[Rfam]
RNA sequence: CUCGGACCUCGUGCGGCACAUAUCUCGCGAACCUCCCCAGGGCCGGAAGGCAGCAAGGAUAAGCGGGCUCUGGUGGGUGCACGGGGUCCCCUUCU
Numbered sequence: 001c002u003c004g005g006a007c008c009u010c011g012u013g014c015g016g017c018a019c020a021u022a023u024c025u026c027g028c029g030a031a032c033c034u035c036c037c038c039a040g041g042g043c044c045g046g047a048a049g050g051c052a053g054c055a056a057g058g059a060u061a062a063g064c065g066g067g068c069u070c071u072g073g074u075g076g077g078u079g080c081a082c083g084g085g086g087u088c089c090c091c092u093u094c095u
Stems, first nucleotide, its partner, number of pairs: 004089010014077001017075003024067005034059003042051003